[Rfam]
RNA sequence: UGCUCUGUGAUUAUGUACCUACAAUGGGCAAUAUAUGUUAUUUUGAUUCAGAACAUGACUGGAUAACUUUUGAGAGAAAUUAUGAGAGCA
Numbered sequence: 001u002g003c004u005c006u007g008u009g010a011u012u013a014u015g016u017a018c019c020u021a022c023a024a025u026g027g028g029c030a031a032u033a034u035a036u037g038u039u040a041u042u043u044u045g046a047u048u049c050a051g052a053a054c055a056u057g058a059c060u061g062g063a064u065a066a067c068u069u070u071u072g073a074g075a076g077a078a079a080u081u082a083u084g085a086g087a088g089c090a
Stems, first nucleotide, its partner, number of pairs: 001090005
This 90-nucleotide RNA sequence from Malus domestica belongs to the Rfam family "Small nucleolar RNA U54". The family's RNA type in Rfam is C/D-box small nucleolar RNA. Gene Ontology terms of the family: nucleolus and RNA processing. For this family Rfam cites "The high diversity of snoRNAs in plants: identification and comparative study of 120 snoRNA genes from Oryza sativa" (Chen et al., Nucleic Acids Res, 2003). Rfam describes the family as follows. U54 is a C/D box small nucleolar RNA, which acts as a methylation guide for 18S ribosomal RNA in plants. Taxonomically the source falls in Malus (Eukaryota, eudicotyledons, Gunneridae, fabids).